[Rfam]
RNA sequence: AGCGACAAAGGCAAACCCGGUGAAAACCGGGGACGCAAAGUUACGGGUCUACAUUCACUUUUGUGGAUAUGAUCGCCGAACCACCGAAA
Dot-bracket structure: ..((......((...((((((....))))))..[))...(((.((((((.....................))).]))))))...))...

Record summary
The record is an 89-nucleotide sequence from Leptolinea tardivitalis, which matches "c-di-GMP-I-GGC riboswitch aptamer" in Rfam. Its Rfam clan is "c-di-GMP_I riboswitch clan".